[Rfam]
Rfam assigns this 135-nucleotide RNA from Erinaceus europaeus to the family "Small nucleolar RNA SNORA41". Rfam links the family to the GO terms nucleolus and RNA processing. Rfam classes the family as an H/ACA-box small nucleolar RNA. About the family: ACA41 is a member of the H/ACA class of snoRNA that guide the sites of modification of uridines to pseudouridines. The family has 31 seed sequences and 676 matches in Rfam 15.1. Lineage of the source: Eukaryota > Bilateria > Tetrapoda > Eutheria > Erinaceus. The literature on the family includes a 2001 paper in EMBO J by Huttenhofer et al., "RNomics: an experimental approach that identifies 201 candidates for novel, small, non-messenger RNAs in mouse".
RNA sequence: AUCCACAGCUACUAACAUACAACUGUUCUUAUGGUAGCAGUUGUGACAUUCCUCUGUGAGAAAGAGAUUGUGACACAAAUUUAAACACCUCUUGCCUAGCAAAACAGAAAGUUGGCAUAAGUGUGACAAACAAGG
Numbered sequence: 001a002u003c004c005a006c007a008g009c010u011a012c013u014a015a016c017a018u019a020c021a022a023c024u025g026u027u028c029u030u031a032u033g034g035u036a037g038c039a040g041u042u043g044u045g046a047c048a049u050u051c052c053u054c055u056g057u058g059a060g061a062a063a064g065a066g067a068u069u070g071u072g073a074c075a076c077a078a079a080u081u082u083a084a085a086c087a088c089c090u091c092u093u094g095c096c097u098a099g100c101a102a103a104a105c106a107g108a109a110a111g112u113u114g115g116c117a118u119a120a121g122u123g124u125g126a127c128a129a130a131c132a133a134g135g
Base pairs, nucleotide, nucleotide: 004058005057006056018045019044020043021042022041023040024039025038073124074123075122076121088115089114091111092110093109095107